[Rfam]
6C RNA: a 78-nucleotide RNA.

RNA sequence: GGGGGGGGAAAAAAAAACCCCCUUUUUCCCCCCCGGGGGGGGGUUUUUUUUUUCCCCCCCCAAAAAACCCCCCCCCUU
Numbered sequence: 001g002g003g004g005g006g007g008g009a010a011a012a013a014a015a016a017a018c019c020c021c022c023u024u025u026u027u028c029c030c031c032c033c034c035g036g037g038g039g040g041g042g043g044u045u046u047u048u049u050u051u052u053u054c055c056c057c058c059c060c061c062a063a064a065a066a067a068c069c070c071c072c073c074c075c076c077u078u
Base pairs, nucleotide, nucleotide: 002034003033004032005031006030007029008028009027010026011025012024013023037074038073039072040071041070042069043068044067045066046065047064048063049062

On this family, see Weinberg et al., Nucleic Acids Res 2007: "Identification of 22 candidate structured RNAs in bacteria using the CMfinder comparative genomics pipeline".
Its family is annotated with sporulation in the Gene Ontology.
By type it is a cis-regulatory element.